Rfam assigns this 56-nucleotide RNA from Oceaniovalibus sp. ACAM 378 to the family "sul1 RNA". It is annotated as a riboswitch. The match comes from Rfam's covariance-model search (74 bits). The family's consensus secondary structure is taken from published work.
Nucleotides: 056
Stems, first nucleotide, its partner, number of pairs: 006024006031051006
Number, partner (000 for none) and nucleotide at each position: 001000u002000a003000a004000g005000g006024a007023c008022c009021c010020g011019g012000u013000g014000c015000g016000a017000u018000a019011c020010c021009g022008g023007g024006u025000g026000g027000c028000u029000c030000u031051u032050c033049u034048g035047g036046c037000c038000g039000c040000c041000g042000a043000u044000c045000c046036g047035c048034c049033a050032g051031a052000c053000a054000a055000c056000c